[Rfam]
RNA sequence: CCUGCACCUGGACAGAAAGACCCUAUGAAGCUUUACUGUAGCCUGGAAUUGGGUCCGGGCUUGGCUUGCGCAGGAUAGGUGGGAGGCAUUGAAGCAUUCCUUGUGGGGAGUGUGGAGCCAACAGUGAGAUACCACUCUGGCGAAGCUAGGAUUCUAACCCGUUUCCGUGAUCCGGAAAGGAGACAAUUUCAGGUGGGCAGUUUGACUGGGGCGGUCGCCUCCUAAAAGGUAACGGAGGCGCACAAAGGUUCCCUCAGCACGGUUGGAAAUCGUGCUUUGAGUGUAAAGGCAAUAAGGGAGCUUGACUGCAAGAGCAACAACUCGAGCAGGGUGGAAACACGGUCUUAGUGAUCCGACGGCACAGAAUGGAAUGGCCGUCGCUCAACGGAUAAAAGUUACUCUAGGGAUAACAGGCUGAUCUCCCCCAAGAGUCCACAUCGACGGGGAGGUUUGGCACCUCGAUGUCGGCUCAUCGCAACCUGGGGCGGAAGUACGUCCCAAGGGUUGGGCUGUUCGCCCAUUAAAGCGGUACGUGAGCUGGGUUCAGAACGUCGUGAGACAGUUCGGUCCAUAUCCGGUGCAGGCGUA
Number, nucleotide and partner (000 for none) at each position: 001c584002c583003u582004g581005c580006a579007c578008c577009u000010g576011g575012a574013c000014a000015g570016a000017a000018a000019g000020a000021c000022c405023c404024u403025a402026u000027g401028a400029a397030g396031c395032u394033u393034u000035a201036c200037u199038g198039u000040a000041g000042c193043c192044u191045g190046g189047a188048a187049u000050u000051g154052g153053g152054u151055c150056c149057g000058g147059g146060c145061u144062u143063g000064g141065c140066u139067u000068g137069c000070g000071c000072a000073g000074g000075a000076u000077a000078g136079g135080u134081g133082g132083g000084a000085g119086g118087c117088a000089u000090u000091g000092a000093a000094g113095c112096a111097u110098u109099c108100c107101u106102u000103g000104u000105g000106g101107g100108g099109a098110g097111u096112g095113u094114g000115g000116a000117g087118c086119c085120a000121a000122c000123a000124g000125u000126g000127a000128g000129a000130u000131a000132c082133c081134a080135c079136u078137c068138u000139g066140g065141c064142g000143a062144a061145g060146c059147u058148a000149g056150g055151a054152u053153u052154c051155u000156a000157a000158c000159c180160c179161g000162u178163u177164u176165c175166c174167g173168u000169g000170a000171u000172c000173c167174g166175g165176a164177a163178a162179g160180g159181a000182g000183a000184c000185a000186a000187u048188u047189u046190c045191a044192g043193g042194u000195g000196g000197g000198c038199a037200g036201u035202u000203u000204g216205a215206c214207u213208g000209g000210g000211g000212c000213g207214g206215u205216c204217g239218c238219c237220u236221c235222c234223u000224a000225a000226a000227a000228g000229g000230u000231a000232a000233c000234g222235g221236a220237g219238g218239c217240g386241c000242a343243c342244a000245a000246a000247g000248g301249u300250u299251c298252c297253c296254u280255c279256a000257g275258c274259a273260c272261g271262g270263u000264u000265g000266g000267a000268a000269a000270u262271c261272g260273u259274g258275c257276u000277u000278u000279g255280a254281g290282u289283g000284u000285a000286a000287a000288g000289g282290c281291a000292a000293u000294a000295a000296g253297g252298g251299a250300g249301c248302u000303u000304g000305a000306c329307u328308g327309c326310a000311a000312g323313a322314g321315c000316a000317a000318c000319a000320a000321c314322u313323c312324g000325a000326g309327c308328a307329g306330g000331g340332u339333g338334g000335a000336a000337a000338c333339a332340c331341g000342g243343u242344c000345u000346u000347a000348g000349u000350g000351a000352u000353c000354c380355g379356a378357c377358g376359g375360c374361a000362c373363a372364g000365a000366a000367u000368g000369g000370a000371a000372u363373g362374g360375c359376c358377g357378u356379c355380g354381c000382u000383c000384a000385a000386c240387g000388g000389a000390u000391a000392a000393a033394a032395g031396u030397u029398a000399c000400u028401c027402u025403a024404g023405g022406g000407a000408u000409a000410a000411c000412a000413g000414g455415c454416u453417g000418a452419u449420c448421u447422c446423c445424c444425c443426c000427a000428a000429g439430a438431g000432u000433c000434c000435a000436c000437a000438u430439c429440g000441a000442c000443g425444g424445g423446g422447a421448g420449g419450u000451u000452u418453g416454g415455c414456a000457c000458c000459u000460c000461g000462a000463u000464g000465u000466c541467g539468g538469c537470u536471c533472a530473u529474c528475g527476c526477a000478a000479c504480c503481u000482g499483g498484g497485g496486c495487g494488g000489a000490a000491g000492u000493a000494c487495g486496u485497c484498c483499c482500a000501a000502g000503g480504g479505u000506u520507g519508g518509g517510c516511u000512g000513u000514u000515c000516g510517c509518c508519c507520a506521u000522u000523a000524a000525a000526g476527c475528g474529g473530u472531a000532c000533g471534u000535g000536a470537g469538c468539u467540g000541g466542g000543u000544u000545c000546a000547g565548a564549a563550c562551g560552u559553c558554g000555u000556g000557a000558g553559a552560c551561a000562g550563u549564u548565c547566g000567g000568u000569c000570c015571a000572u000573a000574u012575c011576c010577g008578g007579u006580g005581c004582a003583g002584g001585c000586g000587u000588a000

A member of the RNA family "Bacterial large subunit ribosomal RNA" from Brasilonema sennae, 588 nucleotides of a longer RNA. Lineage of the source: Bacteria > Cyanobacteriota > Cyanophyceae > Nostocales > Brasilonema sennae.